A member of the RNA family "ASpks TB sRNA" from Amycolatopsis saalfeldensis, 69 nucleotides long. A reference for the family is Arnvig and Young (2009), "Identification of small RNAs in Mycobacterium tuberculosis", Mol Microbiol. Lineage of the source: Bacteria > Bacillati > Actinomycetota > Pseudonocardiaceae > Amycolatopsis.

[Rfam]
RNA sequence: CUUGAUCGACCCGAGCCACAACGGGUGGUCCCGGUCCUGUCCGUAGGUGGCGAGCAGUGCCUCCGCCUC
Dot-bracket structure: .............(.((.....)).)....(((...((..(((....)))..))...)).....)....